[Rfam]
RNA sequence: AUGCAUCCAAUAGGAAUUGAACCUACGAAUUUGCCAAUUGUGCGUUGGGUGCUUUCACCAUUCAACCUUGGAUAC
Numbered sequence: 001a002u003g004c005a006u007c008c009a010a011u012a013g014g015a016a017u018u019g020a021a022c023c024u025a026c027g028a029a030u031u032u033g034c035c036a037a038u039u040g041u042g043c044g045u046u047g048g049g050u051g052c053u054u055u056c057a058c059c060a061u062u063c064a065a066c067c068u069u070g071g072a073u074a075c
Stems, first nucleotide, its partner, number of pairs: 003075001005073004011025004040069001042067001044066008
The family of this 75-nucleotide sequence from Papaver nudicaule is "Plastid-ycf2 5UTR RNA".
By type it is a cis-regulatory element.
Pairs were carried over by alignment from the consensus structure, which was predicted with LocARNA.
From the family's description: Plastid ycf2 is a non-coding RNA (ncRNA) recognised in plastids. It was found in the prime untranslated region (5UTR) of ycf2 genes, it presents a tRNA-like motif which suggests it can be involved in mRNA maturation, particularly involved in defining the precise 5' end of the transcript.
Taxonomically the source falls in Papaver (Eukaryota, Embryophyta, Spermatophyta, Papaveraceae).